[Rfam]
RNA sequence: AAUCAAUGAUGAAAAGGUUUUAAUACAGACCUUUAUAACUACAAGGGUUUCUACACUUUAUCUGAGCUCA
Numbered sequence: 001a002a003u004c005a006a007u008g009a010u011g012a013a014a015a016g017g018u019u020u021u022a023a024u025a026c027a028g029a030c031c032u033u034u035a036u037a038a039c040u041a042c043a044a045g046g047g048u049u050u051c052u053a054c055a056c057u058u059u060a061u062c063u064g065a066g067c068u069c070a
Base pairs, nucleotide, nucleotide: 002068004066013034014033015032016031017030018029019028
Annotation: The record is a 70-nucleotide sequence from Lynx pardinus, which matches "Small nucleolar RNA U2-30" in Rfam. Its family is annotated with RNA processing and nucleolus in the Gene Ontology. The family's RNA type in Rfam is C/D-box small nucleolar RNA. The family has 21 seed sequences and 664 matches in Rfam 15.1. NCBI's taxonomy places the organism under Eukaryota, Teleostomi, Carnivora, Felinae, Lynx.